The record is a 400-nucleotide RNA sequence from Penicillium egyptiacum, which matches "RNase MRP" in Rfam. The family is grouped with related families in Rfam's "RNaseP clan". A reference for the family is Schmitt et al. (1993), "Secondary structure of RNase MRP RNA as predicted by phylogenetic comparison", FASEB J.

[Rfam]
RNA sequence: UCCUCGCUCAAAGAAUCGCAUUCAAAGCUCACACACAAAGGAAGCCUCGCUUCCUUUUCCAAUUUUGCUUUGGGAGAAAGUCCCCGGACACCCUGCGCUUCGGGUAAAACCGAAGUACCAAGCCAGGCACUGCGGAAACGCGCCGCCAUAGAAGCAAUUCGAUAGCGGCUUACGCCCUAUUCCCUCACGGCAUCCCGUGCCACCUGACGGUUACAUUACGAUGUCUCUGGAAACAAUGGGGUGUGUGCUGGGUGUUGGAGGGGGGAAGGAUUGGUGGUAAAACACCUUUCCUUGUAUUGGGUUGCCUUUCGUCAUGUUCCGAUAGUCAUGCGAUUGCCUCCUGUCUGCUUCCUUCGAAGUUGAUGGAGGUAACUCAAUGGGGCUCAUUCUUGAGGCGAGG
Numbered sequence: 001u002c003c004u005c006g007c008u009c010a011a012a013g014a015a016u017c018g019c020a021u022u023c024a025a026a027g028c029u030c031a032c033a034c035a036c037a038a039a040g041g042a043a044g045c046c047u048c049g050c051u052u053c054c055u056u057u058u059c060c061a062a063u064u065u066u067g068c069u070u071u072g073g074g075a076g077a078a079a080g081u082c083c084c085c086g087g088a089c090a091c092c093c094u095g096c097g098c099u100u101c102g103g104g105u106a107a108a109a110c111c112g113a114a115g116u117a118c119c120a121a122g123c124c125a126g127g128c129a130c131u132g133c134g135g136a137a138a139c140g141c142g143c144c145g146c147c148a149u150a151g152a153a154g155c156a157a158u159u160c161g162a163u164a165g166c167g168g169c170u171u172a173c174g175c176c177c178u179a180u181u182c183c184c185u186c187a188c189g190g191c192a193u194c195c196c197g198u199g200c201c202a203c204c205u206g207a208c209g210g211u212u213a214c215a216u217u218a219c220g221a222u223g224u225c226u227c228u229g230g231a232a233a234c235a236a237u238g239g240g241g242u243g244u245g246u247g248c249u250g251g252g253u254g255u256u257g258g259a260g261g262g263g264g265g266a267a268g269g270a271u272u273g274g275u276g277g278u279a280a281a282a283c284a285c286c287u288u289u290c291c292u293u294g295u296a297u298u299g300g301g302u303u304g305c306c307u308u309u310c311g312u313c314a315u316g317u318u319c320c321g322a323u324a325g326u327c328a329u330g331c332g333a334u335u336g337c338c339u340c341c342u343g344u345c346u347g348c349u350u351c352c353u354u355c356g357a358a359g360u361u362g363a364u365g366g367a368g369g370u371a372a373c374u375c376a377a378u379g380g381g382g383c384u385c386a387u388u389c390u391u392g393a394g395g396c397g398a399g400g
Stems, first nucleotide, its partner, number of pairs: 002400006008393004014335006022074001023072006038056007079384002082382004098115006248301002251298003258293003261288004271281002274278001337369005
By type it is a ribozyme.
About the family: RNase MRP is an enzymatically active ribonucleoprotein with two distinct roles in eukaryotes. In mitochondria it plays a direct role in the initiation of mitochondrial DNA replication. In the nucleus it is involved in precursor rRNA processing, where it cleaves the internal transcribed spacer 1 between 18S and 5.8S rRNAs.